[Rfam]
This 101-nucleotide sequence from Nocardia bovistercoris belongs to the Rfam family "Glycine riboswitch aptamer". A search with the family's covariance model found it, with a score of 58 bits.

RNA sequence: CGCCGCCGUGCGGGAGAGUUCCGGUCUCGAAACGAGUCCGGGCGCCGAAGGAGCAGCACCUCCCCGUCAAUCUCUCAGGCAACCGGGACCGUACGGGCUUC
Dot-bracket structure: .....((((((((......((((...............)))).(((((..(((....((......))....))))).)))........)))))))).....